[Rfam]
RNA sequence: UAGUGGAGUUAUACAAAACAACAUUAGCGAAGUUAAAAUAAGGUUUAAUCCGUAAUCAACAAGUUUUAUCUUGCGCGCGCCGUUUCGGCGCUUUUUUU
Dot-bracket structure: (..((..(((((..........)).))).....))..)...((......)).........((........))....((((((...)))))).......
Description:
The record is a 98-nucleotide sequence from Ligilactobacillus animalis, which matches "Trans-activating crRNA" in Rfam. RNA-guided Streptococcus pyogenes Cas9 (SpCas9) is a sequence-specific DNA endonuclease, the Trans-activating CRISPR RNA form an hybrid with the crRNA (crRNA/tracrRNA). The RNA hybrid acts as a guide for the endonuclease Cas9. NCBI's taxonomy places the organism under Bacteria, Bacillati, Bacilli, Ligilactobacillus, Ligilactobacillus animalis. The sequence is in the family's curated seed alignment.